The record is a 55-nucleotide RNA, which matches "pemK RNA" in Rfam. Rfam's curators put it in the seed alignment. Pairs were carried over by alignment from the consensus structure, which is taken from published work.
RNA sequence: AUAAUGAUACUUCCGGCAAUAGUCCGGUCUGAAGAAGAUGGUGCAAUUCCAAUGG
Numbered sequence: 001a002u003a004a005u006g007a008u009a010c011u012u013c014c015g016g017c018a019a020u021a022g023u024c025c026g027g028u029c030u031g032a033a034g035a036a037g038a039u040g041g042u043g044c045a046a047u048u049c050c051a052a053u054g055g
Stems, first nucleotide, its partner, number of pairs: 012052001013027004028038003039051003